[Rfam]
RNA sequence: GUCGCGAAAGCGCCGAAGGCAGGAGCGGGGGACCCAGGUUUGUGCCGGUCCCGUCCGGCGCCCAGCAGGGCGGCGGACAUCCGGCUCGGGGUGAAGCCGUGCGACGCACGUCGUACGGCCGGGCACUCACUGCGCCCGAACCCGACAGCUCACCUCGUAGGCGUCGGUGAGGAGAUCC
Number, nucleotide and partner (000 for none) at each position: 001g000002u000003c000004g000005c000006g000007a000008a000009a000010g000011c163012g162013c161014c160015g000016a000017a000018g000019g000020c000021a000022g000023g000024a000025g158026c157027g156028g155029g154030g153031g000032a000033c000034c000035c088036a000037g000038g000039u000040u000041u000042g000043u000044g000045c000046c000047g000048g000049u000050c000051c000052c000053g000054u000055c000056c000057g000058g000059c000060g000061c000062c000063c000064a000065g000066c000067a000068g000069g000070g000071c000072g000073g000074c000075g000076g000077a000078c000079a000080u000081c000082c000083g000084g000085c000086u000087c000088g035089g143090g142091g141092u000093g000094a000095a000096g000097c118098c117099g116100u115101g114102c113103g112104a111105c110106g000107c000108a000109c000110g105111u104112c103113g102114u101115a100116c099117g098118g097119c000120c000121g137122g136123g135124c134125a000126c000127u000128c000129a000130c000131u000132g000133c000134g124135c123136c122137c121138g000139a000140a000141c091142c090143c089144g000145a000146c000147a000148g000149c000150u000151c000152a000153c030154c029155u028156c027157g026158u025159a000160g014161g013162c012163g011164u000165c000166g000167g000168u000169g000170a000171g000172g000173a000174g000175a000176u000177c000178c000
RNA: c-di-AMP riboswitch aptamer (ydaO/yuaA leader)